Burkholderia sRNA 25: an 84-nucleotide RNA sequence from Paraburkholderia tropica. Rfam links the family to the GO term bacterial biofilm matrix. The literature on the family includes a 2017 paper in Sci Rep by Sass et al., "Identification of small RNAs abundant in Burkholderia cenocepacia biofilms reveal putative regulators with a potential role in carbon and iron metabolism". The base pairs follow the family's consensus structure, which was predicted with RNAfold. Taxonomically the source falls in Paraburkholderia (Bacteria, Pseudomonadota, Betaproteobacteria, Burkholderiales). Identified by RNA-seq, RACE and Northern blot. Strongly expressed in biofilm.
RNA sequence: GCUGCUUUCCGAAGCAGACUUUUUCGUUGACGAAAAAGAUCUCCAAACCUUUGUCGGCGCGGCCAUUGGCUGCGCUUUUUUUUU
Numbered sequence: 001g002c003u004g005c006u007u008u009c010c011g012a013a014g015c016a017g018a019c020u021u022u023u024u025c026g027u028u029g030a031c032g033a034a035a036a037a038g039a040u041c042u043c044c045a046a047a048c049c050u051u052u053g054u055c056g057g058c059g060c061g062g063c064c065a066u067u068g069g070c071u072g073c074g075c076u077u078u079u080u081u082u083u084u
Base pairs, nucleotide, nucleotide: 002017003016004015005014006013007012019038020037021036022035023034024033025032026031056076057075058074059073060072061071062070063069064068